[Rfam]
The record is a 73-nucleotide sequence from Harpegnathos saltator, which matches "mir-278 microRNA precursor family" in Rfam. Gene Ontology terms of the family: RISC complex and miRNA-mediated post-transcriptional gene silencing. For this family Rfam cites "Evolution, biogenesis, expression, and target predictions of a substantially expanded set of Drosophila microRNAs" (Ruby et al., Genome Res, 2007).

RNA sequence: GAUGCGUCCGGUCGAAGUCUUCAUCGGCCGUGAUUGCGACCGACGGUCGGUGGGACUUUCGUCCGUUUGCAGA
Numbered sequence: 001g002a003u004g005c006g007u008c009c010g011g012u013c014g015a016a017g018u019c020u021u022c023a024u025c026g027g028c029c030g031u032g033a034u035u036g037c038g039a040c041c042g043a044c045g046g047u048c049g050g051u052g053g054g055a056c057u058u059u060c061g062u063c064c065g066u067u068u069g070c071a072g073a
Base pairs, nucleotide, nucleotide: 003071004070005069006068009065010064011063013061014060015059016057017056018055019054020053022052023051025049026048027047028046029045